[Rfam]
RNA: ffh sRNA
RNA sequence: AAACAAAGAGAUCGACAUUAGUCAGCGAGGGUUCGCCCACUAGUGAGAUCACUG
Numbered sequence: 001a002a003a004c005a006a007a008g009a010g011a012u013c014g015a016c017a018u019u020a021g022u023c024a025g026c027g028a029g030g031g032u033u034c035g036c037c038c039a040c041u042a043g044u045g046a047g048a049u050c051a052c053u054g
Stems, first nucleotide, its partner, number of pairs: 016045007025036004